[Rfam]
The record is an 86-nucleotide sequence from Paenibacillus yonginensis, which matches "c-di-GMP-I riboswitch aptamer" in Rfam. A search with the family's covariance model found it, with a score of 67 bits. Pairs were carried over by alignment from the consensus structure, which is taken from published work. NCBI's taxonomy places the organism under Bacteria, Bacillota, Caryophanales, Paenibacillaceae, Paenibacillus.
RNA sequence: AGAAGUAAAUAGCAAACCAGUCCGAAAGGCUGGGACGCAAAACCACGGAUCUAAGGUGAUUGAACUACGACCGCCGGGCUGCCAAU
Dot-bracket structure: ...........((...((((.((....))))))...))..(.((.(((.((....((......))...))...))))).)......
Numbered sequence: 001a002g003a004a005g006u007a008a009a010u011a012g013c014a015a016a017c018c019a020g021u022c023c024g025a026a027a028g029g030c031u032g033g034g035a036c037g038c039a040a041a042a043c044c045a046c047g048g049a050u051c052u053a054a055g056g057u058g059a060u061u062g063a064a065c066u067a068c069g070a071c072c073g074c075c076g077g078g079c080u081g082c083c084a085a086u
Stems, first nucleotide, its partner, number of pairs: 012038002017033004022029002041080001043078002046076003050070002056065002